[Rfam]
RNA sequence: GUAAGAAUGUAGGGAAACUUGCAUUUAGAGGCAAUACAAAUACUCGUAUUGUCCAAUGAAGAAACUGAAUUGCUGGGAACUCGUAAAGCUAACGAAACGACAACGUAGGGAUAAUAAACCCAAGCGUGAACGUAGUGAAAACAGAAAAAAUUCGUUAGAUAGCAUAAGGUUAAAUCCUAAGUGCCCAUACAAUCGAAAAUCAGCAGCCAAGCCUAGAAAUAGGAAGGUUCAACGACUAUUCCUCUUGAGGGAAGUACACACAAGCGUGUGGAAGUGGUUUCGCCUGAACAAGUAAAGUUGAAGGAUAAGAUAUAGUCUGUGCUUGCAUGAAAGUGCAAG
Number, nucleotide and partner (000 for none) at each position: 001g000002u000003a000004a000005g026006a025007a024008u023009g022010u021011a020012g019013g018014g000015a000016a000017a000018c013019u012020u011021g010022c009023a008024u007025u006026u005027a000028g000029a000030g037031g000032c000033a000034a000035u000036a000037c030038a000039a000040a000041u000042a000043c000044u000045c000046g000047u000048a000049u000050u000051g000052u000053c000054c000055a000056a000057u000058g000059a000060a000061g281062a280063a279064a278065c000066u276067g275068a000069a000070u000071u205072g204073c203074u202075g201076g200077g000078a000079a000080c000081u196082c195083g194084u000085a000086a000087a000088g000089c000090u000091a000092a000093c000094g000095a000096a000097a000098c000099g000100a000101c000102a000103a000104c000105g000106u000107a000108g000109g000110g000111a000112u000113a000114a000115u000116a000117a000118a000119c000120c000121c000122a000123a000124g000125c000126g000127u000128g000129a000130a000131c000132g000133u000134a000135g000136u000137g000138a000139a000140a000141a000142c000143a000144g000145a000146a000147a000148a000149a000150a000151u000152u000153c000154g000155u000156u000157a000158g000159a000160u000161a000162g000163c000164a000165u000166a000167a000168g000169g000170u000171u000172a000173a000174a000175u000176c000177c000178u000179a000180a000181g000182u000183g000184c000185c000186c000187a000188u000189a000190c000191a000192a000193u000194c083195g082196a081197a000198a000199a000200u076201c075202a074203g073204c072205a071206g228207c227208c000209a000210a000211g000212c222213c000214u000215a000216g000217a000218a000219a000220u000221a000222g212223g000224a000225a000226g000227g207228u206229u000230c000231a000232a318233c000234g317235a316236c315237u314238a313239u000240u000241c000242c000243u000244c000245u000246u000247g000248a000249g000250g000251g000252a000253a000254g000255u000256a000257c000258a000259c000260a000261c000262a000263a000264g000265c000266g000267u000268g000269u000270g000271g000272a000273a000274g000275u067276g066277g000278u064279u063280u062281c061282g000283c304284c303285u302286g000287a000288a299289c000290a000291a000292g000293u000294a000295a000296a000297g000298u000299u288300g000301a000302a285303g284304g283305a000306u000307a000308a000309g000310a000311u000312a000313u238314a237315g236316u235317c234318u232319g000320u000321g000322c000323u000324u337325g336326c335327a334328u333329g000330a000331a000332a000333g328334u327335g326336c325337a324338a000339g000
RNA: Group I catalytic intron